[Rfam]
RNA sequence: CCAGCUAAAUUAUCAUGUUAUGUUACUGCUGCUACAGUGAAUCCCCCUGUGCGGUGGGGUGUAAUUGGUUAUCAAUGGAAACAGCUGUUUGUUUGCCACACGAGUCACGGUAUAGCCAGCCAAAGAUUCACCGGGAGGCACCCGGCACUGCAGCAUACUGAUAACAAAUAUAGCGUGUCCCAAAGGCUCACUUCGGUGAGCCUUUUUUACAGGC
Number, nucleotide and partner (000 for none) at each position: 001c000002c000003a000004g000005c000006u000007a000008a000009a000010u000011u000012a000013u000014c160015a000016u000017g158018u000019u000020a000021u000022g000023u000024u000025a000026c000027u000028g000029c000030u000031g151032c150033u000034a149035c000036a000037g148038u147039g146040a000041a000042u000043c000044c059045c058046c057047c056048u000049g000050u000051g000052c000053g000054g000055u000056g047057g046058g045059g044060u000061g000062u000063a000064a000065u000066u000067g000068g092069u091070u000071a000072u000073c000074a000075a000076u000077g000078g000079a000080a000081a000082c000083a000084g000085c000086u000087g000088u000089u000090u000091g069092u068093u000094u000095g101096c000097c000098a000099c000100a000101c095102g129103a128104g127105u126106c000107a000108c000109g000110g121111u000112a000113u000114a000115g000116c000117c000118a000119g000120c000121c110122a000123a000124a000125g000126a105127u104128u103129c102130a000131c145132c144133g143134g142135g141136a000137g000138g000139c000140a000141c135142c134143c133144g132145g131146c039147a038148c037149u034150g032151c031152a000153g000154c000155a000156u000157a000158c017159u000160g014161a000162u000163a000164a000165c000166a000167a000168a000169u000170a000171u000172a000173g214174c213175g000176u211177g000178u000179c000180c000181c000182a205183a204184a203185g202186g201187c200188u199189c198190a197191c000192u000193u000194c000195g000196g000197u190198g189199a188200g187201c186202c185203u184204u183205u182206u000207u000208u000209a000210c000211a176212g000213g174214c173

A member of the RNA family "Gammaproteobacterial sRNA STnc100" from Salmonella enterica, 214 nucleotides long. Pairs were carried over by alignment from the consensus structure, which was predicted with CMfinder. The family's RNA type in Rfam is small RNA.